Shown here is a 79-nucleotide RNA from Maylandia zebra, a member of the family "mir-219 microRNA precursor family". Rfam 15.1 lists 1,318 matches to the family in 774 species. Its family is annotated with miRNA-mediated post-transcriptional gene silencing and RISC complex in the Gene Ontology. A search with the family's covariance model found it, with a score of 66 bits.

RNA sequence: UCUGGUGUUGAUUGUCCAAACGCAAUUCUUGUAUUUAAUAUCCAUAUCCAGGAGUUGUGGCUGGACAUCAUGCUCCCAA
Numbered sequence: 001u002c003u004g005g006u007g008u009u010g011a012u013u014g015u016c017c018a019a020a021c022g023c024a025a026u027u028c029u030u031g032u033a034u035u036u037a038a039u040a041u042c043c044a045u046a047u048c049c050a051g052g053a054g055u056u057g058u059g060g061c062u063g064g065a066c067a068u069c070a071u072g073c074u075c076c077c078a079a
Stems, first nucleotide, its partner, number of pairs: 004076002007073001009070004014066005021059011
A reference for the family is Lim et al. (2003), "Vertebrate microRNA genes", Science.